[Rfam]
RNA sequence: CCGCAGGGAAAAUGAGGGACUUUUGGGGGCAGCUGUGUUUCUUCUACCCUACCAUAAUGCCCCCGAAAAUCCUUAUUGCUCUUGCA
Number, nucleotide and partner (000 for none) at each position: 001c000002c000003g000004c000005a000006g000007g000008g000009a000010a000011a000012a000013u000014g000015a074016g073017g072018g071019a070020c000021u068022u067023u066024u000025g064026g063027g062028g061029g060030c059031a058032g000033c000034u056035g055036u054037g053038u000039u000040u000041c000042u000043u000044c000045u000046a000047c000048c000049c000050u000051a000052c000053c037054a036055u035056a034057a000058u031059g030060c029061c028062c027063c026064c025065g000066a023067a022068a021069a000070u019071c018072c017073u016074u015075a000076u000077u000078g000079c000080u000081c000082u000083u000084g000085c000086a000

A member of the RNA family "mir-365 microRNA precursor family" from Varanus komodoensis, 86 nucleotides long. Its family is annotated with RISC complex and miRNA-mediated post-transcriptional gene silencing in the Gene Ontology. Taxonomically the source falls in Varanus (Eukaryota, Metazoa, Unidentata, Anguimorpha). A reference for the family is Xie et al. (2005), "Systematic discovery of regulatory motifs in human promoters and 3' UTRs by comparison of several mammals", Nature.